Rfam assigns this 103-nucleotide RNA from Beutenbergia cavernae to the family "SAM riboswitch aptamer (S box leader)".
Taxonomically the source falls in Beutenbergia cavernae (Bacteria, Bacillati, Actinomycetota, Micrococcales).
The match comes from Rfam's covariance-model search (57 bits).

RNA sequence: CCACCAUCCAGAGCGGCCGAGAGUCCUGGCUCGACGACGCCGCAGCAACCCCCCAACGGAAGCCUCCCGAGGGGAAGGGUGCUAACGCCAGGUCCGAUGGAGA
Numbered sequence: 001c002c003a004c005c006a007u008c009c010a011g012a013g014c015g016g017c018c019g020a021g022a023g024u025c026c027u028g029g030c031u032c033g034a035c036g037a038c039g040c041c042g043c044a045g046c047a048a049c050c051c052c053c054c055a056a057c058g059g060a061a062g063c064c065u066c067c068c069g070a071g072g073g074g075a076a077g078g079g080u081g082c083u084a085a086c087g088c089c090a091g092g093u094c095c096g097a098u099g100g101a102g103a
Base pairs, nucleotide, nucleotide: 002102004100005099006098007097008096013043014042015041016040017039021032022031023030026091027090028089029088044083045082046081047080049079050078052074053073054072087095